The record is a 128-nucleotide sequence from Hucho hucho, which matches "Small nucleolar RNA ACA64" in Rfam. A reference for the family is Schattner et al. (2006), "A computational screen for mammalian pseudouridylation guide H/ACA RNAs", RNA. It scores 76 bits against the family's covariance model. The family's consensus secondary structure was predicted with WAR. The organism belongs to Hucho, within Eukaryota.
RNA sequence: CCGGUUUGAAAAUCACCUCAGGCAUCUCAGUUGUCUGGGGUGAGAUAACUGGGCCUACAGUACUGUGGUAUGUUAAGCUUAUUGCCUGCUCUGUAUAGCAGUGUGAUUAAACCCAUGUGCCUACACGU
Numbered sequence: 001c002c003g004g005u006u007u008g009a010a011a012a013u014c015a016c017c018u019c020a021g022g023c024a025u026c027u028c029a030g031u032u033g034u035c036u037g038g039g040g041u042g043a044g045a046u047a048a049c050u051g052g053g054c055c056u057a058c059a060g061u062a063c064u065g066u067g068g069u070a071u072g073u074u075a076a077g078c079u080u081a082u083u084g085c086c087u088g089c090u091c092u093g094u095a096u097a098g099c100a101g102u103g104u105g106a107u108u109a110a111a112c113c114c115a116u117g118u119g120c121c122u123a124c125a126c127g128u
Base pairs, nucleotide, nucleotide: 005052006051008049010046013043014042015041016040021035022034023033024032067121069119070118071117072116073115079109081107082106083105087100088099089098